[Rfam]
Description: This 105-nucleotide RNA sequence from Anaeromicropila herbilytica belongs to the Rfam family "Guanidine-I riboswitch aptamer". The match comes from Rfam's covariance-model search (83 bits). About the family: This family represents a conserved RNA structure found upstream of the ykkC and yxkD genes in Bacillus subtilis and related genes in other bacteria. The function of this family is unclear although it has been suggested that it may function to switch on efflux pumps and detoxification systems in response to harmful environmental molecules. NCBI's taxonomy places the organism under Bacteria, Bacillati, Bacillota, Lachnospirales, Anaeromicropila.
RNA sequence: UAAAAAGUUUUAUAGGGUUCCGCAGCUAUAAUAAAUAAGUUGGUCUGGUCCAAGAUGAAACGCAUAGUUUUACUAUGUUCACGGAGGGACAAAAGCCUGGGAGAU
Numbered sequence: 001u002a003a004a005a006a007g008u009u010u011u012a013u014a015g016g017g018u019u020c021c022g023c024a025g026c027u028a029u030a031a032u033a034a035a036u037a038a039g040u041u042g043g044u045c046u047g048g049u050c051c052a053a054g055a056u057g058a059a060a061c062g063c064a065u066a067g068u069u070u071u072a073c074u075a076u077g078u079u080c081a082c083g084g085a086g087g088g089a090c091a092a093a094a095g096c097c098u099g100g101g102a103g104a105u
Stems, first nucleotide, its partner, number of pairs: 007061006015051002020048002022045001023042005062078006080100001082103001086098003